[Rfam]
RNA sequence: CCCGUUUCAGGGCAAACUCACCGAAAGGUGGGGACGCAAAGCCUCCGGUCUACGGGACGCAUGUGCCUAUGACAGCGGGGUUGCCGGU
Numbered sequence: 001c002c003c004g005u006u007u008c009a010g011g012g013c014a015a016a017c018u019c020a021c022c023g024a025a026a027g028g029u030g031g032g033g034a035c036g037c038a039a040a041g042c043c044u045c046c047g048g049u050c051u052a053c054g055g056g057a058c059g060c061a062u063g064u065g066c067c068u069a070u071g072a073c074a075g076c077g078g079g080g081u082u083g084c085c086g087g088u
Stems, first nucleotide, its partner, number of pairs: 012037002017032006040082004045078003048073003055067002057064002
RNA: c-di-GMP-I riboswitch aptamer